[Rfam]
RNA sequence: AAAAUGGAAAGCUAGGGUUCCGGUUGCGACUAUUUCUAUAGGUAAAGCAACGACUGGUCCGAGAGCUUUCGACCUUCAGAGUACGUGGCUAGGCUGCAAGAAGGUUACACGGCGGGACAAAAGCCCGGGAGAC
Numbered sequence: 001a002a003a004a005u006g007g008a009a010a011g012c013u014a015g016g017g018u019u020c021c022g023g024u025u026g027c028g029a030c031u032a033u034u035u036c037u038a039u040a041g042g043u044a045a046a047g048c049a050a051c052g053a054c055u056g057g058u059c060c061g062a063g064a065g066c067u068u069u070c071g072a073c074c075u076u077c078a079g080a081g082u083a084c085g086u087g088g089c090u091a092g093g094c095u096g097c098a099a100g101a102a103g104g105u106u107a108c109a110c111g112g113c114g115g116g117a118c119a120a121a122a123g124c125c126c127g128g129g130a131g132a133c
Base pairs, nucleotide, nucleotide: 007070008069009068010067011066012065015060016059020057021056022054023051024050025049026048027047071106072105073104074103075102076101077100108128110131114126115125116124
Notes: Guanidine-I riboswitch aptamer: a 133-nucleotide RNA sequence from gamma proteobacterium BDW918. NCBI's taxonomy places the organism under Bacteria, Pseudomonadati, Pseudomonadota, Gammaproteobacteria, Spongiibacteraceae.